A member of the RNA family "TPP riboswitch aptamer (THI element)" from Pseudoprimorskyibacter insulae, 101 nucleotides long. Vitamin B(1) in its active form thiamin pyrophosphate (TPP) is an essential coenzyme that is synthesised by coupling of pyrimidine and thiazole moieties in bacteria. Its family is annotated with thiamine pyrophosphate binding in the Gene Ontology. The family's consensus secondary structure is taken from published work. Lineage of the source: Bacteria > Pseudomonadati > Pseudomonadota > Paracoccaceae > Pseudoprimorskyibacter.

[Rfam]
RNA sequence: CGCCGCACCUCGGGGUGCCCGUAACUGGGCUGAGAUGCGCAAGCGAACCCGUUGAACCUGAACCGGUUAACACCGGCGGAGGGAAGGUUGAGACAACGCGC
Numbered sequence: 001c002g003c004c005g006c007a008c009c010u011c012g013g014g015g016u017g018c019c020c021g022u023a024a025c026u027g028g029g030c031u032g033a034g035a036u037g038c039g040c041a042a043g044c045g046a047a048c049c050c051g052u053u054g055a056a057c058c059u060g061a062a063c064c065g066g067u068u069a070a071c072a073c074c075g076g077c078g079g080a081g082g083g084a085a086g087g088u089u090g091a092g093a094c095a096a097c098g099c100g101c
Stems, first nucleotide, its partner, number of pairs: 007088004011051004016045001017030005037044002057082003063076004